Shown here is an 89-nucleotide RNA sequence from Effusibacillus dendaii, a member of the family "c-di-GMP-I riboswitch aptamer". It scores 78 bits against the family's covariance model.
[Rfam]
RNA sequence: AAUCAUCAAGGGCAAACCUCGUCGAAAGACAGGGACGCAAAGCCAUGGGUCUAAAGCUUCCCCAAAGCAAUGAUAGCCAGGCUGCUGAU
Numbered sequence: 001a002a003u004c005a006u007c008a009a010g011g012g013c014a015a016a017c018c019u020c021g022u023c024g025a026a027a028g029a030c031a032g033g034g035a036c037g038c039a040a041a042g043c044c045a046u047g048g049g050u051c052u053a054a055a056g057c058u059u060c061c062c063c064a065a066a067g068c069a070a071u072g073a074u075a076g077c078c079a080g081g082c083u084g085c086u087g088a089u
Stems, first nucleotide, its partner, number of pairs: 012038002017033003021030003041083004046079003049074003056068004